Rfam assigns this 84-nucleotide sequence from Nothoprocta perdicaria to the family "Small nucleolar RNA SNORD121A". NCBI's taxonomy places the organism under Eukaryota, Vertebrata, Sauria, Saurischia, Nothoprocta.
RNA sequence: GUCCAAAACACAGUGAUGUUGUCUUUUCCAAGCACAUAACUGAUCACUUUGUGUGGAAAAUGACUGUUCUGAGUGAUUUUGGAU
Numbered sequence: 001g002u003c004c005a006a007a008a009c010a011c012a013g014u015g016a017u018g019u020u021g022u023c024u025u026u027u028c029c030a031a032g033c034a035c036a037u038a039a040c041u042g043a044u045c046a047c048u049u050u051g052u053g054u055g056g057a058a059a060a061u062g063a064c065u066g067u068u069c070u071g072a073g074u075g076a077u078u079u080u081g082g083a084u
Stems, first nucleotide, its partner, number of pairs: 001084006008077001009075003
For this family Rfam cites "snoSeeker: an advanced computational package for screening of guide and orphan snoRNA genes in the human genome" (Yang et al., Nucleic Acids Res, 2006).